[Rfam]
RNA sequence: UGACCCCCGAAAUCAAGCAUGGGUGAAGCCCGUGAUAUGUUUGCUGGGCGACCCAUUCUUGUUUUCUGCGGUGG
Numbered sequence: 001u002g003a004c005c006c007c008c009g010a011a012a013u014c015a016a017g018c019a020u021g022g023g024u025g026a027a028g029c030c031c032g033u034g035a036u037a038u039g040u041u042u043g044c045u046g047g048g049c050g051a052c053c054c055a056u057u058c059u060u061g062u063u064u065u066c067u068g069c070g071g072u073g074g
Stems, first nucleotide, its partner, number of pairs: 003072003007068001009066004014061001016059002021054004028049004